[Rfam]
RNA sequence: CCCCGAAAGCCUAAACCCCACACACGUAUCGACACGAUUUCCUGGGUGCCCGCAAGGGUUGGAAAUUGGGAUGCGUGGAGGCCUAAC
Numbered sequence: 001c002c003c004c005g006a007a008a009g010c011c012u013a014a015a016c017c018c019c020a021c022a023c024a025c026g027u028a029u030c031g032a033c034a035c036g037a038u039u040u041c042c043u044g045g046g047u048g049c050c051c052g053c054a055a056g057g058g059u060u061g062g063a064a065a066u067u068g069g070g071a072u073g074c075g076u077g078g079a080g081g082c083c084u085a086a087c
Base pairs, nucleotide, nucleotide: 023077024076025075026074027073028072029071030070035068036067037066038065039064040063041062042061048059049058050057051056
This 87-nucleotide sequence from Pseudomonas fulva belongs to the Rfam family "t44 RNA".
It is annotated as a small RNA.
It is one of the family's seed sequences.
Pairs were carried over by alignment from the consensus structure, which was predicted with LocARNA.
On this family, see Tjaden et al., Nucleic Acids Res 2002: "Transcriptome analysis of Escherichia coli using high-density oligonucleotide probe arrays".
The source organism's lineage runs through Bacteria, Pseudomonadati, Pseudomonadaceae, Pseudomonas and Pseudomonas fulva.